[Rfam]
A member of the RNA family "bZIP non canonical Hac1/Xbp1 intron" from Eufriesea mexicana, 74 nucleotides long. The base pairs follow the family's consensus structure, which was predicted with RNAfold. On this family, see Hooks and Griffiths-Jones, RNA Biol 2011: "Conserved RNA structures in the non-canonical Hac1/Xbp1 intron". The family's RNA type in Rfam is small RNA.

RNA sequence: GGCUGUGCUGUGUCCUCGCUGGGAUCUACAGUAUCCCCCACUCACCCUCUGCAGCAGGGUGGAACAACACAGCU
Numbered sequence: 001g002g003c004u005g006u007g008c009u010g011u012g013u014c015c016u017c018g019c020u021g022g023g024a025u026c027u028a029c030a031g032u033a034u035c036c037c038c039c040a041c042u043c044a045c046c047c048u049c050u051g052c053a054g055c056a057g058g059g060u061g062g063a064a065c066a067a068c069a070c071a072g073c074u
Base pairs, nucleotide, nucleotide: 001074002073003072004071005070006069007068010065011064013062014061021037022036023035024034025033044060045059046058047057048056